This 133-nucleotide RNA from Phrynocephalus forsythii belongs to the Rfam family "Small nucleolar RNA SNORA84". It is annotated as an H/ACA-box small nucleolar RNA. It scores 105 bits against the family's covariance model. The family has 28 seed sequences and 757 matches in Rfam 15.1. Gene Ontology terms of the family: RNA processing and nucleolus. For this family Rfam cites "Experimental RNomics: identification of 140 candidates for small non-messenger RNAs in the plant Arabidopsis thaliana" (Marker et al., Curr Biol, 2002). Taxonomically the source falls in Phrynocephalus (Eukaryota, Vertebrata, Sauria, Iguania).

RNA sequence: GCCCCGUGGUUACUGAACACUGUUGUCUCAGUGCAGUGCUUCAGUUGUUAUAAAUGGGCCAAAAAUAAUACUCUGACAUAUGCAUGGAGUUUGACGUUCGAGCAGCCUCCAUAGCCCGGUCACUGUUACAUUU
Numbered sequence: 001g002c003c004c005c006g007u008g009g010u011u012a013c014u015g016a017a018c019a020c021u022g023u024u025g026u027c028u029c030a031g032u033g034c035a036g037u038g039c040u041u042c043a044g045u046u047g048u049u050a051u052a053a054a055u056g057g058g059c060c061a062a063a064a065a066u067a068a069u070a071c072u073c074u075g076a077c078a079u080a081u082g083c084a085u086g087g088a089g090u091u092u093g094a095c096g097u098u099c100g101a102g103c104a105g106c107c108u109c110c111a112u113a114g115c116c117c118g119g120u121c122a123c124u125g126u127u128a129c130a131u132u133u
Stems, first nucleotide, its partner, number of pairs: 001059004007050002010047001012045006019037005071125001074122004082115002084112004089107001091105003